Background: The family of this 86-nucleotide RNA sequence from Vibrio ostreae is "c-di-GMP-I riboswitch aptamer". The base pairs follow the family's consensus structure, which is taken from published work. It scores 70 bits against the family's covariance model.

RNA sequence: CGAUUGUAAAGGCAAAGCCUUCGAAAGGAGGUGACGCAAAGUUUCCGGUCUAACGGAUAUUUUCCUAAGAUAGCGGGACCGCCAGU
Number, nucleotide and partner (000 for none) at each position: 001c000002g000003a000004u000005u000006g000007u000008a000009a000010a000011g000012g037013c036014a000015a000016a000017g032018c031019c030020u029021u028022c027023g000024a000025a000026a000027g022028g021029a020030g019031g018032u017033g000034a000035c000036g013037c012038a000039a000040a000041g079042u078043u077044u000045c076046c075047g074048g071049u070050c069051u000052a000053a000054c000055g065056g064057a063058u000059a000060u000061u000062u000063u057064c056065c055066u000067a000068a000069g050070a049071u048072a000073g000074c047075g046076g045077g043078a042079c041080c000081g000082c000083c000084a000085g000086u000